[Rfam]
RNA sequence: UGCUAUGAUGCUGUAAUUUGCGUCUUACCCUGUGUCUAGCGACAGGUGCCUCUGUCAGUGUGCUUGCACAGAAGGUUGACGAUAAGCUUGAAACUGAGCA
Numbered sequence: 001u002g003c004u005a006u007g008a009u010g011c012u013g014u015a016a017u018u019u020g021c022g023u024c025u026u027a028c029c030c031u032g033u034g035u036c037u038a039g040c041g042a043c044a045g046g047u048g049c050c051u052c053u054g055u056c057a058g059u060g061u062g063c064u065u066g067c068a069c070a071g072a073a074g075g076u077u078g079a080c081g082a083u084a085a086g087c088u089u090g091a092a093a094c095u096g097a098g099c100a
Stems, first nucleotide, its partner, number of pairs: 001100003021081004030071005039063002041056005
Rfam assigns this 100-nucleotide RNA from Acipenser ruthenus to the family "Small nucleolar RNA SNORD16". The family has 5 seed sequences and 1,321 matches in Rfam 15.1. The match comes from Rfam's covariance-model search (92 bits). The source organism's lineage runs through Eukaryota, Chordata, Acipenserinae, Acipenserini and Acipenser. Its family is annotated with nucleolus and RNA processing in the Gene Ontology. For this family Rfam cites "A novel small nucleolar RNA (U16) is encoded inside a ribosomal protein intron and originates by processing of the pre-mRNA" (Fragapane et al., EMBO J, 1993). The base pairs follow the family's consensus structure, which was predicted with PFOLD. Its Rfam clan is "SNORD16 clan".